[Rfam]
RNA: c-di-GMP-I riboswitch aptamer
Organism: Pelosinus sp. UFO1
RNA sequence: GUAUAUAAUUGGCAAACCUUCUGAAAAGAAGGGACGCAAAGCUAUGGGUCUAAGGACGAUUAAGUCUAUGAUUGCCAGGUUGCAUUU
Numbered sequence: 001g002u003a004u005a006u007a008a009u010u011g012g013c014a015a016a017c018c019u020u021c022u023g024a025a026a027a028g029a030a031g032g033g034a035c036g037c038a039a040a041g042c043u044a045u046g047g048g049u050c051u052a053a054g055g056a057c058g059a060u061u062a063a064g065u066c067u068a069u070g071a072u073u074g075c076c077a078g079g080u081u082g083c084a085u086u087u
Stems, first nucleotide, its partner, number of pairs: 012037002017032006040081004045077003048072003055066003